[Rfam]
RNA sequence: CAUCAAGAGUUGCGACGGUAAGUACUCAGCUGGUCGCACAGCAACCCAUUCUCACGUGUGGGUGCUCUGAGGGAAGAUGCGGCCAGCCCGCCGGGAUGGUCACACGUGGGCC
Numbered sequence: 001c002a003u004c005a006a007g008a009g010u011u012g013c014g015a016c017g018g019u020a021a022g023u024a025c026u027c028a029g030c031u032g033g034u035c036g037c038a039c040a041g042c043a044a045c046c047c048a049u050u051c052u053c054a055c056g057u058g059u060g061g062g063u064g065c066u067c068u069g070a071g072g073g074a075a076g077a078u079g080c081g082g083c084c085a086g087c088c089c090g091c092c093g094g095g096a097u098g099g100u101c102a103c104a105c106g107u108g109g110g111c112c
Stems, first nucleotide, its partner, number of pairs: 001079004009039001011038006021031002040066003045062003050056001086111006

Rfam assigns this 112-nucleotide RNA from Microbacteriaceae bacterium MWH-Ta3 to the family "SAM (S-adenosyl methionine) riboswitch aptamer". It scores 58 bits against the family's covariance model. On this family, see Weinberg et al., RNA 2008: "The aptamer core of SAM-IV riboswitches mimics the ligand-binding site of SAM-I riboswitches". The base pairs follow the family's consensus structure, which is taken from published work. SAM-IV is a mRNA element that regulates gene expression via direct sensing of S-adenosylmethionine (SAM or AdoMet). SAM-IV riboswitches share conserved nucleotide positions with the previously described SAM-I riboswitches sequence analysis and molecular recognition experiments suggest that SAM-I and SAM-IV riboswitches share similar ligand binding sites, but have different scaffolds. The source organism's lineage runs through Bacteria, Actinomycetota, Actinomycetes, Micrococcales and Microbacteriaceae.